A member of the RNA family "mir-2060 microRNA precursor family" from Branchiostoma floridae, 94 nucleotides long.
It scores 79 bits against the family's covariance model.
Its family is annotated with RISC complex and miRNA-mediated post-transcriptional gene silencing in the Gene Ontology.
The family has 7 seed sequences and 3,696 matches in Rfam 15.1.
RNA sequence: GUUUGACUGUGAAUGGAUGGCGUUCAGCACCGGGAACAGGUUUGUUCGACUGUGUAUGGAUGGUGUUUAGCACCAAGGACAGGCUUGUUUGACU
Numbered sequence: 001g002u003u004u005g006a007c008u009g010u011g012a013a014u015g016g017a018u019g020g021c022g023u024u025c026a027g028c029a030c031c032g033g034g035a036a037c038a039g040g041u042u043u044g045u046u047c048g049a050c051u052g053u054g055u056a057u058g059g060a061u062g063g064u065g066u067u068u069a070g071c072a073c074c075a076a077g078g079a080c081a082g083g084c085u086u087g088u089u090u091g092a093c094u
Stems, first nucleotide, its partner, number of pairs: 005084001007082004018075003022071003026067007034055001036053004041048001